A member of the RNA family "TPP riboswitch aptamer (THI element)" from Flavobacteriaceae bacterium Ap0902, 94 nucleotides long. Taxonomically the source falls in Flavobacteriaceae (Bacteria, Pseudomonadati, Bacteroidota, Flavobacteriia). It scores 75 bits against the family's covariance model.
[Rfam]
RNA sequence: UGUGAUCUUUAGGGGUGCUGAAUAUUCGGCUGAGAAAUACCCUUAGAACCUGAACAGGAUAAUACCUGCGCUAGGGAAAAGAAAGUUUUUUAGG
Numbered sequence: 001u002g003u004g005a006u007c008u009u010u011a012g013g014g015g016u017g018c019u020g021a022a023u024a025u026u027c028g029g030c031u032g033a034g035a036a037a038u039a040c041c042c043u044u045a046g047a048a049c050c051u052g053a054a055c056a057g058g059a060u061a062a063u064a065c066c067u068g069c070g071c072u073a074g075g076g077a078a079a080a081g082a083a084a085g086u087u088u089u090u091u092a093g094g
Base pairs, nucleotide, nucleotide: 006082007081008080009079010078011043012042013041014040016037017030018029019028020027021026049075050074051073052072055068056067057066058065